[Rfam]
RNA: mir-275 microRNA precursor family
Nucleotides: 092
Base pairs, nucleotide, nucleotide: 008084009083010082012080014078015077016076017075018074019073020072028063029062030061033059034058035057036056
Number, partner (000 for none) and nucleotide at each position: 001000g002000u003000c004000u005000c006000u007000u008084a009083c010082c011000u012080u013000g014078c015077g016076c017075g018074c019073u020072a021000a022000u023000c024000a025000g026000u027000g028063a029062c030061c031000a032000g033059g034058g035057c036056u037000g038000a039000g040000u041000a042000a043000u044000u045000u046000u047000a048000u049000u050000c051000a052000a053000u054000a055000c056036a057035g058034u059033c060000a061030g062029g063028u064000a065000c066000c067000u068000g069000a070000a071000g072020u073019a074018g075017c076016g077015c078014g079000c080012g081000u082010g083009g084008u085000u086000u087000u088000a089000g090000a091000c092000c